[Rfam]
The record is a 95-nucleotide RNA sequence from a Kiloniellaceae bacterium, which matches "Glycine riboswitch aptamer" in Rfam. The match comes from Rfam's covariance-model search (68 bits).
RNA sequence: UUGAUCCCCGCGGGAGAGACUGGUCUCCGCAAGAGAUCGGCGCCGAAGGAGCAACCGCCCCGGAAACUCUCAGGCAAAAGGACCGCAAGGGAGAG
Dot-bracket structure: .....((..((((......((((((((.....)))))))).(((((..(((...((.....))...))))).))).......))))..)).....
Rfam describes the family as follows. This family represents the bacterial glycine riboswitch. Lineage of the source: Bacteria > Pseudomonadota > Alphaproteobacteria > Rhodospirillales > Kiloniellaceae.